RNA sequence: CGGACAAUCUGUGUCCGCUGGGAUGUGGCCCUAACGGGGCUGAACCGUAAA
Numbered sequence: 001c002g003g004a005c006a007a008u009c010u011g012u013g014u015c016c017g018c019u020g021g022g023a024u025g026u027g028g029c030c031c032u033a034a035c036g037g038g039g040c041u042g043a044a045c046c047g048u049a050a051a
Base pairs, nucleotide, nucleotide: 001017002016003015004014005013019047020046021045027041028040029039030038031037